The family of this 266-nucleotide sequence from Peribacillus asahii is "Bacterial large signal recognition particle RNA".
The family's consensus secondary structure is taken from published work.
Taxonomically the source falls in Peribacillus (Bacteria, Bacilli, Caryophanales, Bacillaceae).
Rfam describes the family as follows. The signal recognition particle (SRP) is a universally conserved ribonucleoprotein involved in the co-translational targeting of proteins to membranes.
Rfam links the family to the GO terms signal recognition particle, plasma membrane targeting and SRP-dependent cotranslational protein targeting to membrane, signal sequence recognition.

[Rfam]
RNA sequence: CCGUGCUAGAUGGGGAGUUGGCGGUGCCCUGUAACCCGCAAUCCGCCAUAGCGGGGUUGAACUCCUAUUUGAGGUAGGAACAUGUGAGGUCUGCCUUGUGAAAGCAGUGUUGACAAUUGGGUCCUACGCAAUGGAAACCUACGAAAUUGGUCAGGUCUGGAAGGAAGCAGCCAUAAGUAGUGAUUUCGAUGUGCCGUGGGGCAACCUAAUUAGAGCUAGCUUCCAUAAGUAACGCUUGGUUGUUUCUAUAAAUGAUAGGUGCACGG
Numbered sequence: 001c002c003g004u005g006c007u008a009g010a011u012g013g014g015g016a017g018u019u020g021g022c023g024g025u026g027c028c029c030u031g032u033a034a035c036c037c038g039c040a041a042u043c044c045g046c047c048a049u050a051g052c053g054g055g056g057u058u059g060a061a062c063u064c065c066u067a068u069u070u071g072a073g074g075u076a077g078g079a080a081c082a083u084g085u086g087a088g089g090u091c092u093g094c095c096u097u098g099u100g101a102a103a104g105c106a107g108u109g110u111u112g113a114c115a116a117u118u119g120g121g122u123c124c125u126a127c128g129c130a131a132u133g134g135a136a137a138c139c140u141a142c143g144a145a146a147u148u149g150g151u152c153a154g155g156u157c158u159g160g161a162a163g164g165a166a167g168c169a170g171c172c173a174u175a176a177g178u179a180g181u182g183a184u185u186u187c188g189a190u191g192u193g194c195c196g197u198g199g200g201g202c203a204a205c206c207u208a209a210u211u212a213g214a215g216c217u218a219g220c221u222u223c224c225a226u227a228a229g230u231a232a233c234g235c236u237u238g239g240u241u242g243u244u245u246c247u248a249u250a251a252a253u254g255a256u257a258g259g260u261g262c263a264c265g266g
Base pairs, nucleotide, nucleotide: 001266002265003264004263005262006261009058010057011056012030013029014028015027017025018024019023035055036054037053038052039051064259065258066257067256068255069254074249075248076247077246079244080243081242082241085238086237087236088235092231093230096228097227098226099225100224104220105219106217107216108215115211116210117209118208119207120206121205122204123200124199125198126197127196128195129191130190132189134187135186136185139180140179141178142177148173149172150171151170156165157164158163